[Rfam]
RNA sequence: AGAUUGAAGAAAAGAAGGACUAGUAAGAUGGCUUAUAAGCUGGAUUUUGAGAGUGAGUGAGCUCUUCUACGCAUUGGCUUAUAAGCCAUCUUACUAGUCUUUCUUUUCUUC
Numbered sequence: 001a002g003a004u005u006g007a008a009g010a011a012a013a014g015a016a017g018g019a020c021u022a023g024u025a026a027g028a029u030g031g032c033u034u035a036u037a038a039g040c041u042g043g044a045u046u047u048u049g050a051g052a053g054u055g056a057g058u059g060a061g062c063u064c065u066u067c068u069a070c071g072c073a074u075u076g077g078c079u080u081a082u083a084a085g086c087c088a089u090c091u092u093a094c095u096a097g098u099c100u101u102u103c104u105u106u107u108c109u110u111c
Stems, first nucleotide, its partner, number of pairs: 002110002006108005014103026043075003050068004055064003